Rfam assigns this 101-nucleotide sequence from Macaca mulatta to the family "Y RNA".
[Rfam]
RNA sequence: AGCUGAUCUGAGUGCAGUGGUAUUUGCGACUAAUUGAUCACAACCAGUUACAGAUUUUUUUGUUCUUCUCCACCCACACUGCUUCACUUGACUGACUAGCU
Number, nucleotide and partner (000 for none) at each position: 001a097002g096003c000004u094005g093006a000007u091008c090009u000010g089011a088012g000013u000014g085015c000016a080017g079018u078019g077020g000021u000022a000023u000024u000025u000026g000027c000028g064029a063030c062031u000032a060033a059034u000035u000036g000037a000038u000039c000040a000041c000042a000043a000044c000045c000046a000047g000048u000049u000050a000051c000052a000053g000054a000055u000056u000057u000058u000059u033060u032061u000062g030063u029064u028065c000066u000067u000068c000069u000070c000071c000072a000073c000074c000075c000076a000077c019078a018079c017080u016081g000082c000083u000084u000085c014086a000087c000088u011089u010090g008091a007092c000093u005094g004095a000096c002097u001098a000099g000100c000101u000

The base pairs follow the family's consensus structure, which is taken from published work. For this family Rfam cites "5'-YRNA fragments derived by processing of transcripts from specific YRNA genes and pseudogenes are abundant in human serum and plasma" (Dhahbi et al., Physiol Genomics, 2013).